This 90-nucleotide RNA sequence from Homo sapiens belongs to the Rfam family "mir-616 microRNA precursor family".
The family's consensus secondary structure was predicted with RNAalifold.

[Rfam]
RNA sequence: UUAGGUAAUUCCUCCACUCAAAACCCUUCAGUGACUUCCAUGACAUGAAAUAGGAAGUCAUUGGAGGGUUUGAGCAGAGGAAUGACCUGU
Numbered sequence: 001u002u003a004g005g006u007a008a009u010u011c012c013u014c015c016a017c018u019c020a021a022a023a024c025c026c027u028u029c030a031g032u033g034a035c036u037u038c039c040a041u042g043a044c045a046u047g048a049a050a051u052a053g054g055a056a057g058u059c060a061u062u063g064g065a066g067g068g069u070u071u072g073a074g075c076a077g078a079g080g081a082a083u084g085a086c087c088u089g090u
Stems, first nucleotide, its partner, number of pairs: 002089005008083007017074003021071019

The source organism's lineage runs through Eukaryota, Gnathostomata, Tetrapoda, Primates and Homo. Rfam links the family to the GO terms miRNA-mediated post-transcriptional gene silencing and RISC complex.